[Rfam]
Nucleotides: 440
Base pairs, nucleotide, nucleotide: 024055025053026052027051028050029049035042036041065072066071076103077102078101079100086094087093106338107337108336109335113159114158115157116156118154119153121150122149123148124147125146127144128143129142130141164279166276167275168274169273173270174269176263177262178261179260180259182257184244185243186242187241188240189239190238194210196209197208198207199206213217220230221229288309289308290307291306292305293304294303315332316331317330318329319328372379373378395406396405397404398403
Number, partner (000 for none) and nucleotide at each position: 001000c002000g003000g004000u005000c006000u007000c008000a009000g010000g011000u012000c013000g014000g015000g016000c017000g018000g019000g020000a021000a022000u023000a024055c025053c026052c027051g028050u029049c030000g031000a032000a033000c034000u035042u036041a037000a038000g039000c040000a041036u042035a043000u044000c045000a046000a047000u048000a049029g050028a051027c052026g053025g054000a055024g056000g057000a058000a059000a060000a061000g062000a063000a064000a065072c066071u067000a068000a069000c070000c071066a072065g073000g074000a075000u076103u077102c078101c079100c080000u081000u082000a083000g084000u085000a086094g087093c088000g089000g090000c091000g092000a093087g094086c095000g096000a097000a098000u099000c100079g101078g102077g103076a104000u105000c106338a107337g108336c109335u110000c111000a112000a113159g114158a115157u116156u117000u118154u119153a120000a121150u122149c123148g124147g125146c126000a127144g128143u129142g130141g131000u132000u133000c134000c135000u136000a137000u138000g139000a140000u141130c142129c143128a144127c145000c146125g147124c148123u149122g150121a151000g152000a153119u154118g155000u156116a157115g158114u159113c160000c161000u162000a163000a164279g165000u166276g167275g168274c169273g170000c171000a172000c173270u174269c175000g176263g177262g178261a179260g180259a181000a182257g183000u184244g185243g186242u187241a188240u189239a190238u191000u192000a193000a194210g195000u196209c197208u198207u199206u200000u201000g202000g203000a204000a205000c206199a207198a208197a209196g210194c211000g212000c213217c214000a215000u216000a217213g218000a219000g220230g221229g222000u223000g224000a225000u226000a227000g228000c229221c230220c231000c232000g233000u234000c235000u236000g237000u238190g239189u240188a241187u242186a243185c244184c245000a246000a247000g248000u249000c250000g251000u252000c253000u254000g255000a256000g257182c258000c259180u260179c261178u262177c263176c264000c265000u266000g267000c268000c269174g270173a271000u272000g273169c274168g275167c276166c277000a278000c279164u280000c281000g282000u283000g284000a285000g286000u287000c288309g289308g290307g291306u292305u293304g294303c295000u296000u297000g298000g299000g300000a301000g302000u303294g304293c305292a306291g307290c308289c309288u310000a311000a312000a313000u314000a315332g316331g317330g318329u319328g320000g321000u322000a323000u324000a325000c326000u327000u328319c329318a330317u331316c332315c333000a334000a335109a336108g337107c338106u339000a340000a341000a342000u343000a344000u345000g346000g347000a348000c349000a350000g351000g352000a353000g354000a355000c356000c357000g358000a359000u360000a361000g362000c363000g364000a365000a366000c367000a368000a369000g370000u371000a372379c373378c374000g375000c376000g377000a378373g379372g380000g381000a382000a383000a384000g385000a386000u387000g388000a389000a390000a391000a392000g393000a394000a395406c396405u397404u398403u399000g400000g401000a402000a403398a404397g405396a406395g407000a408000g409000u410000g411000a412000a413000a414000u415000a416000g417000u418000g419000c420000u421000u422000g423000a424000a425000a426000c427000c428000a429000u430000u431000g432000g433000g434000g435000g436000g437000a438000a439000a440000g
Eukaryotic large subunit ribosomal RNA: a 440-nucleotide part of an RNA from Guillardia theta. The organism belongs to Guillardia, within Eukaryota. The sequence is in the family's curated seed alignment. The family is grouped with related families in Rfam's "LSU clan".